[Rfam]
RNA sequence: CAAUAGCCCUGAUUGUAGUAAAAAUCCUUUUCUUGUUUUGCAAAAAACAAGAAAAGAUUGUAACGAAAAGCAGGAAAAGGG
Numbered sequence: 001c002a003a004u005a006g007c008c009c010u011g012a013u014u015g016u017a018g019u020a021a022a023a024a025u026c027c028u029u030u031u032c033u034u035g036u037u038u039u040g041c042a043a044a045a046a047a048c049a050a051g052a053a054a055a056g057a058u059u060g061u062a063a064c065g066a067a068a069a070g071c072a073g074g075a076a077a078a079g080g081g
Base pairs, nucleotide, nucleotide: 009073010072011071013069014068018064019063023059024058025057026056029054030053031052032051033050034049035048036047037046038045
Flavo-1 RNA: an 81-nucleotide sequence from Flavobacterium sp. 9AF. Taxonomically the source falls in Flavobacterium (Bacteria, Flavobacteriia, Flavobacteriales, Flavobacteriaceae).